Rfam assigns this 73-nucleotide RNA sequence from Medicago truncatula to the family "MIR5272 microRNA precursor family". The source organism's lineage runs through Eukaryota, Embryophyta, rosids, Hologalegina and Medicago.

[Rfam]
Nucleotides: 073
Base pairs, nucleotide, nucleotide: 010060011059012058013057014056015055016054017053020052021051024048025047026046029044030043031042032041033040
Number, partner (000 for none) and nucleotide at each position: 001000u002000u003000u004000g005000a006000g007000g008000u009000g010060a011059u012058u013057g014056a015055u016054u017053u018000a019000u020052g021051u022000u023000u024048g025047g026046a027000g028000a029044c030043a031042c032041u033040u034000u035000c036000u037000u038000a039000u040033a041032a042031g043030u044029g045000a046026u047025u048024c049000u050000u051021a052020u053017g054016a055015g056014u057013u058012g059011a060010u061000g062000u063000u064000g065000u066000u067000u068000g069000g070000a071000u072000a073000g